[Rfam]
RNA sequence: GACGGGCUGCACGGUACGACAGGGAUAACUUUUCCUCGGGGCCUUAGUCAUUCCGAAGGGAGCUGUCCCUGCCCUGGUCCGUGGACUGGGGCACACGGCGCCCACCUACUCUGUAGGUUCCCGGGAUCGACUUUCUCAUCGGCCGAGGUGGCUCGUCA
Numbered sequence: 001g002a003c004g005g006g007c008u009g010c011a012c013g014g015u016a017c018g019a020c021a022g023g024g025a026u027a028a029c030u031u032u033u034c035c036u037c038g039g040g041g042c043c044u045u046a047g048u049c050a051u052u053c054c055g056a057a058g059g060g061a062g063c064u065g066u067c068c069c070u071g072c073c074c075u076g077g078u079c080c081g082u083g084g085a086c087u088g089g090g091g092c093a094c095a096c097g098g099c100g101c102c103c104a105c106c107u108a109c110u111c112u113g114u115a116g117g118u119u120c121c122c123g124g125g126a127u128c129g130a131c132u133u134u135c136u137c138a139u140c141g142g143c144c145g146a147g148g149u150g151g152c153u154c155g156u157c158a
Base pairs, nucleotide, nucleotide: 002156003155004154005153006152007151008150009149010148012145013144014143015142017141018140019139033126034125035124036123038121039120040119041118042117043116058103059102060101062099063098064097065096066095071092072091073090074089075088076087077086
Shown here is a 158-nucleotide RNA from Aureimonas altamirensis, a member of the family "6S / SsrS RNA". The organism belongs to Aureimonas, within Bacteria. For this family Rfam cites "6S RNA is a widespread regulator of eubacterial RNA polymerase that resembles an open promoter" (Barrick et al., RNA, 2005). By type it is a non-coding RNA gene. It scores 80 bits against the family's covariance model.